[Rfam]
RNA sequence: CACGUGACAAUCCGAGGUGCGUGCGCGUCUUCCAUGCCACGUGAUUUCCUUCUGGUAGUCGCGGAGAUGC
Dot-bracket structure: ..(((.((......(((..............................))).......)).))).......
RNA: Trypanosomatid snoRNA TB9Cs1H2
Organism: Trypanosoma vivax